[Rfam]
RNA sequence: UGGCGCCCAACGUGGGGCUCUGGAUACGGGGGAUCCAGUGAGGAAGAAGACCCUGAAGUGCCGGUGAGUGAGUUUCGAGAGAGACGAAACGAAAGUAAAUUCCUUCGACCGCCGCGGGAGCCUGCCGCGCGGGAACAGAAGGUGAGUAAGUGCGUCUGAAUAUGGGGCAGGGAUUAAGCCAGCAUCAGCUUUAUGUUAAGCAGUUAAAGGAUGCUUUAAAGACACAAGGAGUAAAGGUUAAAGGACAUGAUUUAUUUGAAUUUUUUGAUUUUAUAGAGGAUAUUUGCCCUU
Numbered sequence: 001u002g003g004c005g006c007c008c009a010a011c012g013u014g015g016g017g018c019u020c021u022g023g024a025u026a027c028g029g030g031g032g033a034u035c036c037a038g039u040g041a042g043g044a045a046g047a048a049g050a051c052c053c054u055g056a057a058g059u060g061c062c063g064g065u066g067a068g069u070g071a072g073u074u075u076c077g078a079g080a081g082a083g084a085c086g087a088a089a090c091g092a093a094a095g096u097a098a099a100u101u102c103c104u105u106c107g108a109c110c111g112c113c114g115c116g117g118g119a120g121c122c123u124g125c126c127g128c129g130c131g132g133g134a135a136c137a138g139a140a141g142g143u144g145a146g147u148a149a150g151u152g153c154g155u156c157u158g159a160a161u162a163u164g165g166g167g168c169a170g171g172g173a174u175u176a177a178g179c180c181a182g183c184a185u186c187a188g189c190u191u192u193a194u195g196u197u198a199a200g201c202a203g204u205u206a207a208a209g210g211a212u213g214c215u216u217u218a219a220a221g222a223c224a225c226a227a228g229g230a231g232u233a234a235a236g237g238u239u240a241a242a243g244g245a246c247a248u249g250a251u252u253u254a255u256u257u258g259a260a261u262u263u264u265u266u267g268a269u270u271u272u273a274u275a276g277a278g279g280a281u282a283u284u285u286g287c288c289c290u291u
Stems, first nucleotide, its partner, number of pairs: 006032003012027003036060002039057001100144001102142001104140002109133002113129005151169003155166004175218003178214002225267008235253006276291004281286001
The record is a 291-nucleotide RNA sequence from Propithecus coquereli, which matches "Mason-Pfizer monkey virus packaging signal" in Rfam. This family represents a group of sequences that are related to the Mason-Pfizer monkey virus (MPMV) packaging signal. The packaging signal is located in the 5' UTR and is required for specific RNA encapsidation. Its family is annotated with viral genome packaging in the Gene Ontology. The match comes from Rfam's covariance-model search (207 bits).